[Rfam]
RNA sequence: GCUCGAAAAAGGCAAACCACCCGAAAGGGUGAGGCGCAAAGCCACUGGCCUAAGUCCGAAAGGUAUCGGAUACGGCGGCAGGGUUGCCGGG
Numbered sequence: 001g002c003u004c005g006a007a008a009a010a011g012g013c014a015a016a017c018c019a020c021c022c023g024a025a026a027g028g029g030u031g032a033g034g035c036g037c038a039a040a041g042c043c044a045c046u047g048g049c050c051u052a053a054g055u056c057c058g059a060a061a062g063g064u065a066u067c068g069g070a071u072a073c074g075g076c077g078g079c080a081g082g083g084u085u086g087c088c089g090g091g
Base pairs, nucleotide, nucleotide: 012037013036018031019030020029021028022027040085041084042083043082045081046080047079048076049075050074055070056069057068058067
Shown here is a 91-nucleotide sequence from Desulfatitalea alkaliphila, a member of the family "c-di-GMP-I riboswitch aptamer".
Its family is annotated with cyclic-di-GMP binding in the Gene Ontology.
The match comes from Rfam's covariance-model search (77 bits).